[Rfam]
RNA: mir-87 microRNA precursor family
RNA sequence: UGUUGGCGGGCCUGACUCGUUGCUCAACCUGUGUUUUUAAUACGUUCUUAGGUGAGCAAAGUUUCAGGUGUGCCAACGU
Dot-bracket structure: .((((((..((((((..(.((.((((.(((...................))))))).)).)..))))))..))))))..